Shown here is a 62-nucleotide RNA sequence from Variovorax terrae, a member of the family "Xanthine riboswitch aptamer (NMT1 RNA)". A reference for the family is Xu et al. (2021), "Insights into xanthine riboswitch structure and metal ion-mediated ligand recognition", Nucleic Acids Res. Rfam links the family to the GO term purine nucleobase binding. A search with the family's covariance model found it, with a score of 42 bits. The organism belongs to Variovorax, within Bacteria.
[Rfam]
RNA sequence: CGCGAGAGUAGAAGCGUUCACCGGCGGCCCGUCUGGGCGGUCGAUCGGAAAUUGCUCUUGGA
Numbered sequence: 001c002g003c004g005a006g007a008g009u010a011g012a013a014g015c016g017u018u019c020a021c022c023g024g025c026g027g028c029c030c031g032u033c034u035g036g037g038c039g040g041u042c043g044a045u046c047g048g049a050a051a052u053u054g055c056u057c058u059u060g061g062a
Stems, first nucleotide, its partner, number of pairs: 005058006015047001018049002022043004027038004